[Rfam]
The family of this 87-nucleotide RNA from Myotis lucifugus is "mir-9195 microRNA precursor family". The base pairs follow the family's consensus structure, which was predicted with RNAalifold. The organism belongs to Myotis, within Eukaryota.
RNA sequence: AGAGGCCCUCUGUGGCCGGAGUGGGAUGCUUGCCUCGUCGUUGCGGCGACAAAGCAAGCAUUCCACCAGGCUGCUCACGCUGCCUGC
Numbered sequence: 001a002g003a004g005g006c007c008c009u010c011u012g013u014g015g016c017c018g019g020a021g022u023g024g025g026a027u028g029c030u031u032g033c034c035u036c037g038u039c040g041u042u043g044c045g046g047c048g049a050c051a052a053a054g055c056a057a058g059c060a061u062u063c064c065a066c067c068a069g070g071c072u073g074c075u076c077a078c079g080c081u082g083c084c085u086g087c
Base pairs, nucleotide, nucleotide: 004084005083006082012074013073014072015071016070017069021066022065023064024063025062026061027060028059029058030057031056032055033054037050038049039048040047041046